[Rfam]
RNA sequence: AAGGGAGCAAUACUAAACCUCUUGCUCGAACAAGAUAUUGGGUAUUGCUCCUUCAACG
Numbered sequence: 001a002a003g004g005g006a007g008c009a010a011u012a013c014u015a016a017a018c019c020u021c022u023u024g025c026u027c028g029a030a031c032a033a034g035a036u037a038u039u040g041g042g043u044a045u046u047g048c049u050c051c052u053u054c055a056a057c058g
Base pairs, nucleotide, nucleotide: 002053003052004051005050006049007048008047009046010045011044012043013042014041020035021034022033023032024031
Dot-bracket structure: .(((((((((((((.....(((((......))))).....))))))))))))).....